[Rfam]
RtT RNA: a 129-nucleotide RNA from gamma proteobacterium HTCC2207.
The sequence is in the family's curated seed alignment.
This family represents a bacterial cis-regulatory element known as RtT RNA. The exact function of RtT is unknown although it is thought that it may be involved in changing the cellular response in relation to amino acid starvation.
A reference for the family is Bosl and Kersten (1991), "A novel RNA product of the tyrT operon of Escherichia coli", Nucleic Acids Res.
Lineage of the source: Bacteria > Pseudomonadati > Pseudomonadota > Cellvibrionales > Porticoccaceae.
RNA sequence: GUAGUCAGUGUGUGGAGGUGGAUUAGAGCCACCUUGGUACGACAAGUAGCUUUAGCUGCUUGAACGUCACGACAGUGACGGCCCGGAGGGUGAGGCUCGCAGAGCCGAAUAAUCCACCUCCCGCCACCA
Numbered sequence: 001g002u003a004g005u006c007a008g009u010g011u012g013u014g015g016a017g018g019u020g021g022a023u024u025a026g027a028g029c030c031a032c033c034u035u036g037g038u039a040c041g042a043c044a045a046g047u048a049g050c051u052u053u054a055g056c057u058g059c060u061u062g063a064a065c066g067u068c069a070c071g072a073c074a075g076u077g078a079c080g081g082c083c084c085g086g087a088g089g090g091u092g093a094g095g096c097u098c099g100c101a102g103a104g105c106c107g108a109a110u111a112a113u114c115c116a117c118c119u120c121c122c123g124c125c126a127c128c129a
Base pairs, nucleotide, nucleotide: 015120016119017118018117019116020115021114023112032090033089038087040085041084045060046059047058048057065080066079067078068077069076070075